[Rfam]
RNA sequence: GUCGAGUUAAGUAGCACCAGCUCGUGACCCAUAUGGGGGCACCAAGGUGAUGGAACAUGGAUAAGGCUUAACAUGUUAGUCUGGUGCUUGCACCAUGUUGGCCUUCCUGCUCCAAGUUGUGAGUUGACUCAUCGGAGUUGUUAGAAGGAACGAGUCUUAUGGGUCUUAGAAAUAAGGGUACAAUGUGAGGUUGGUUUCAUAGAGCAACGAACACUUCUACUCUUGAUAGUGGAGGGAUCACGGGUUAUUGCAGCCCACAACACCUGGUAAGCCUAGCCCAUUGAACCAUCUCUUUU
Numbered sequence: 001g002u003c004g005a006g007u008u009a010a011g012u013a014g015c016a017c018c019a020g021c022u023c024g025u026g027a028c029c030c031a032u033a034u035g036g037g038g039g040c041a042c043c044a045a046g047g048u049g050a051u052g053g054a055a056c057a058u059g060g061a062u063a064a065g066g067c068u069u070a071a072c073a074u075g076u077u078a079g080u081c082u083g084g085u086g087c088u089u090g091c092a093c094c095a096u097g098u099u100g101g102c103c104u105u106c107c108u109g110c111u112c113c114a115a116g117u118u119g120u121g122a123g124u125u126g127a128c129u130c131a132u133c134g135g136a137g138u139u140g141u142u143a144g145a146a147g148g149a150a151c152g153a154g155u156c157u158u159a160u161g162g163g164u165c166u167u168a169g170a171a172a173u174a175a176g177g178g179u180a181c182a183a184u185g186u187g188a189g190g191u192u193g194g195u196u197u198c199a200u201a202g203a204g205c206a207a208c209g210a211a212c213a214c215u216u217c218u219a220c221u222c223u224u225g226a227u228a229g230u231g232g233a234g235g236g237a238u239c240a241c242g243g244g245u246u247a248u249u250g251c252a253g254c255c256c257a258c259a260a261c262a263c264c265u266g267g268u269a270a271g272c273c274u275a276g277c278c279c280a281u282u283g284a285a286c287c288a289u290c291u292c293u294u295u296u
Stems, first nucleotide, its partner, number of pairs: 001040003004023005028037003044295004049290005056283002058280003062275002065272001068270003072266002075263002080259001082257003086254001088253003099247006107236002110234005116227004121222004126165007134157003138153005166171001172218001174216001176215002184209003191202003
The family of this 296-nucleotide sequence from Lathyrus oleraceus is "Plant signal recognition particle RNA". By type it is a non-coding RNA gene. Taxonomically the source falls in Lathyrus (Eukaryota, Spermatophyta, Gunneridae, rosids).